[Rfam]
This 194-nucleotide RNA sequence from Schistosoma mattheei belongs to the Rfam family "U2 spliceosomal RNA". Taxonomically the source falls in Schistosoma (Eukaryota, Lophotrochozoa, Neodermata, Schistosomatidae).
RNA sequence: UUCGCUUCUCGGCUCUCUGGGCUAACAUCAUGUGUAGUAUCUCUUCUUUGCAGUGUAAUUUCUGCAACGGUCUCUAAACUGAGACCAAUGAAAUUACCCGCAUUUUUCACCUCCGGACAAGUGAUGUGAGCUUGCUCAACCCCGUCCACGGGUUAGCCUCGUAUUGCACUACCUCGAGGAUUGGCCCAUUAGGU
Numbered sequence: 001u002u003c004g005c006u007u008c009u010c011g012g013c014u015c016u017c018u019g020g021g022c023u024a025a026c027a028u029c030a031u032g033u034g035u036a037g038u039a040u041c042u043c044u045u046c047u048u049u050g051c052a053g054u055g056u057a058a059u060u061u062c063u064g065c066a067a068c069g070g071u072c073u074c075u076a077a078a079c080u081g082a083g084a085c086c087a088a089u090g091a092a093a094u095u096a097c098c099c100g101c102a103u104u105u106u107u108c109a110c111c112u113c114c115g116g117a118c119a120a121g122u123g124a125u126g127u128g129a130g131c132u133u134g135c136u137c138a139a140c141c142c143c144g145u146c147c148a149c150g151g152g153u154u155a156g157c158c159u160c161g162u163a164u165u166g167c168a169c170u171a172c173c174u175c176g177a178g179g180a181u182u183g184g185c186c187c188a189u190u191a192g193g194u
Stems, first nucleotide, its partner, number of pairs: 007027001009025001011023004048067006069086006115147004121141001127138004150187006157179005
Rfam's curators write: U2 is a small nuclear RNA (snRNA) component of the spliceosome (involved in pre-mRNA splicing). Complementary binding between U2 snRNA (in an area lying towards the 5' end but 3' to hairpin I) and the branchpoint sequence (BPS) of the intron results the bulging out of an unpaired adenosine, on the BPS, which initiates a nucleophilic attack at the intronic 5' splice site, thus starting the first of two transesterification reactions that mediate splicing.
Pairs were carried over by alignment from the consensus structure, which is taken from published work.
A search with the family's covariance model found it, with a score of 130 bits.